Overview:
A member of the RNA family "Rhizobiales sRNA Atu_At1" from Ensifer fredii, 109 nucleotides long. The family has 33 seed sequences and 200 matches in Rfam 15.1. The family's consensus secondary structure was predicted with CMfinder. A reference for the family is Wilms et al. (2012), "Deep sequencing uncovers numerous small RNAs on all four replicons of the plant pathogen Agrobacterium tumefaciens", RNA Biol. The sequence is in the family's curated seed alignment. The family's RNA type in Rfam is small RNA.
[Rfam]
RNA sequence: ACGCGGACUGUGGCAACCGGACGCGACGGAACUGGAGAAUACGGGAAUUUUGCCGGUUUCUUCCCGUGGCCAACGAAAAGGCAGGCGAGCUCCUGACACCGUCCAGUCC
Numbered sequence: 001a002c003g004c005g006g007a008c009u010g011u012g013g014c015a016a017c018c019g020g021a022c023g024c025g026a027c028g029g030a031a032c033u034g035g036a037g038a039a040u041a042c043g044g045g046a047a048u049u050u051u052g053c054c055g056g057u058u059u060c061u062u063c064c065c066g067u068g069g070c071c072a073a074c075g076a077a078a079a080g081g082c083a084g085g086c087g088a089g090c091u092c093c094u095g096a097c098a099c100c101g102u103c104c105a106g107u108c109c
Stems, first nucleotide, its partner, number of pairs: 006108004011023002014020001025103005034093004040068007069082003